[Rfam]
RNA sequence: UCACUUGGUCAGUUUUGCUGGUUUGCAUUCAGCUUUAACUCGUGUUUGCUGUGCAAAUCCAUGCAAAACUGACUAGGUUG
Numbered sequence: 001u002c003a004c005u006u007g008g009u010c011a012g013u014u015u016u017g018c019u020g021g022u023u024u025g026c027a028u029u030c031a032g033c034u035u036u037a038a039c040u041c042g043u044g045u046u047u048g049c050u051g052u053g054c055a056a057a058u059c060c061a062u063g064c065a066a067a068a069c070u071g072a073c074u075a076g077g078u079u080g
Base pairs, nucleotide, nucleotide: 003078004077005076006075007074008073009072010071011070012069013068014067015066016065017064018063020060021059022057023056024055025054026053027052028051031050032049033048